[Rfam]
Source information
Shown here is a 125-nucleotide RNA from Equus caballus, a member of the family "Small Cajal body specific RNA 23". NCBI's taxonomy places the organism under Eukaryota, Vertebrata, Sarcopterygii, Perissodactyla, Equus. The literature on the family includes a 2002 paper in EMBO J by Darzacq et al., "Cajal body-specific small nuclear RNAs: a novel class of 2'-O-methylation and pseudouridylation guide RNAs". Rfam links the family to the GO terms Cajal body, RNA processing and nucleolus. About the family: scaRNAs are a specific class of small nuclear RNAs which localise to the Cajal bodies and guide the modification of RNA polymerase II transcribed spliceosomal RNAs U1, U2, U4, U5 and U12. ACA11 belongs to the H/ACA box class of guide RNAs as it has the predicted hairpin-hinge-hairpin-tail structure,the conserved H/ACA-box motifs and is found associated with GAR1.

RNA sequence: GUGCUCACCAGGGCUCGGUCCUUUCCAGGUGGACCUGACCUGCCCUCCAUGAGCGAGAGAAACAGUACUGGUUUGGGGGUCUCCUGUCCGAGUGGACACGGGAGACCAUGGUUUUCAGUACAACA
Numbered sequence: 001g002u003g004c005u006c007a008c009c010a011g012g013g014c015u016c017g018g019u020c021c022u023u024u025c026c027a028g029g030u031g032g033a034c035c036u037g038a039c040c041u042g043c044c045c046u047c048c049a050u051g052a053g054c055g056a057g058a059g060a061a062a063c064a065g066u067a068c069u070g071g072u073u074u075g076g077g078g079g080u081c082u083c084c085u086g087u088c089c090g091a092g093u094g095g096a097c098a099c100g101g102g103a104g105a106c107c108a109u110g111g112u113u114u115u116c117a118g119u120a121c122a123a124c125a
Base pairs, nucleotide, nucleotide: 003054004053005052006051007050012044013043014042017040018039019038020037025032026031065121067119068118069117070116071115073111074110075109078107079106080105081104082103083102084101085100086097087096088095089094